[Rfam]
The record is an 87-nucleotide RNA from Bacillus mesophilum, which matches "c-di-GMP-I riboswitch aptamer" in Rfam. The organism belongs to Bacillus, within Bacteria. The literature on the family includes a 2007 paper in Nucleic Acids Res by Weinberg et al., "Identification of 22 candidate structured RNAs in bacteria using the CMfinder comparative genomics pipeline". GEMM was predicted in a large-scale screen for bacterial structured RNA regulatory elements. Genes associated with GEMM are involved in a diverse array of functions, including chemotaxis regulation, signal transduction, secretion and chitin. Its family is annotated with cyclic-di-GMP binding in the Gene Ontology. A search with the family's covariance model found it, with a score of 84 bits.
RNA sequence: UACCUAUAACGGCAAAUUUUACGAAAGUAAAAGACGCAAAGCCACGGACCUAAGGCAUAGAUUUGCUAAGGCAGCCGGGUUACCAAG
Number, nucleotide and partner (000 for none) at each position: 001u000002a000003c000004c000005u000006a000007u000008a000009a000010c000011g000012g037013c036014a000015a000016a000017u032018u031019u030020u029021a028022c027023g000024a000025a000026a000027g022028u021029a020030a019031a018032a017033g000034a000035c000036g013037c012038a000039a000040a081041g080042c079043c078044a000045c077046g076047g075048a000049c071050c070051u000052a000053a000054g000055g066056c065057a064058u000059a000060g000061a000062u000063u000064u057065g056066c055067u000068a000069a000070g050071g049072c000073a000074g000075c047076c046077g045078g043079g042080u041081u040082a000083c000084c000085a000086a000087g000